[Rfam]
RNA sequence: GGGCGUCAAGUCCUACUCUGCACCUCCACGUGGUGGCGCCUGGGAAUCCUUUCUCUCAUUAGAAAGGAGCCAAGCAGAGUGG
Number, nucleotide and partner (000 for none) at each position: 001g000002g000003g000004c000005g000006u000007c000008a000009a000010g000011u000012c000013c082014u081015a080016c079017u078018c077019u076020g075021c074022a034023c033024c032025u000026c000027c000028a000029c000030g000031u000032g024033g023034u022035g000036g000037c000038g000039c000040c000041u000042g000043g000044g000045a000046a000047u068048c067049c066050u065051u064052u063053c062054u000055c000056u000057c000058a000059u000060u000061a000062g053063a052064a051065a050066g049067g048068a047069g000070c000071c000072a000073a000074g021075c020076a019077g018078a017079g016080u015081g014082g013